[Rfam]
This 61-nucleotide RNA from Glycomyces tenuis belongs to the Rfam family "L31-Actinobacteria ribosomal protein leader".
RNA sequence: GCGGUACCGGUUCACGGCCCGCCCCGCGCGAAGCGCGUUGGCAGGGGCCGACCCGGCGACC
Numbered sequence: 001g002c003g004g005u006a007c008c009g010g011u012u013c014a015c016g017g018c019c020c021g022c023c024c025c026g027c028g029c030g031a032a033g034c035g036c037g038u039u040g041g042c043a044g045g046g047g048c049c050g051a052c053c054c055g056g057c058g059a060c061c
Stems, first nucleotide, its partner, number of pairs: 003061003007056004015050006021042003
Dot-bracket structure: ..(((.((((....(((((((((................)))..))))))..))))..)))

Its Rfam clan is "Ribosomal Protein L31 Leader clan". For this family Rfam cites "Discovery of 20 novel ribosomal leader candidates in bacteria and archaea" (Eckert and Weinberg, BMC Microbiol, 2020).